[Rfam]
RNA sequence: CCACAGUUGUGUCUUAUGGCUUUCUAUUCCUAUGUGAUUCUUUCUGGCAUUUCAUGUAGGGUUCAAAGCCAUGGGAUGCACCGUGG
Numbered sequence: 001c002c003a004c005a006g007u008u009g010u011g012u013c014u015u016a017u018g019g020c021u022u023u024c025u026a027u028u029c030c031u032a033u034g035u036g037a038u039u040c041u042u043u044c045u046g047g048c049a050u051u052u053c054a055u056g057u058a059g060g061g062u063u064c065a066a067a068g069c070c071a072u073g074g075g076a077u078g079c080a081c082c083g084u085g086g
Stems, first nucleotide, its partner, number of pairs: 002085003006082001008080016026063001028061010
RNA: mir-135 microRNA precursor family
Organism: Neogobius melanostomus